[Rfam]
RNA sequence: GCUCCCUUCGUCUAGUGGUUAGGACGUCGCCCUCUCACGGCGGUAACAUGGGUUCGAGUCCCAUAGGGAGCG
Numbered sequence: 001g002c003u004c005c006c007u008u009c010g011u012c013u014a015g016u017g018g019u020u021a022g023g024a025c026g027u028c029g030c031c032c033u034c035u036c037a038c039g040g041c042g043g044u045a046a047c048a049u050g051g052g053u054u055c056g057a058g059u060c061c062c063a064u065a066g067g068g069a070g071c072g
Stems, first nucleotide, its partner, number of pairs: 001071007010025004027043005048064005
The family of this 72-nucleotide RNA sequence from Aquicella lusitana is "tRNA". About the family: Transfer RNA (tRNA) molecules are approximately 80 nucleotides in length. Pairs were carried over by alignment from the consensus structure, which is taken from published work. The match comes from Rfam's covariance-model search (62 bits). Lineage of the source: Bacteria > Pseudomonadati > Gammaproteobacteria > Coxiellaceae > Aquicella.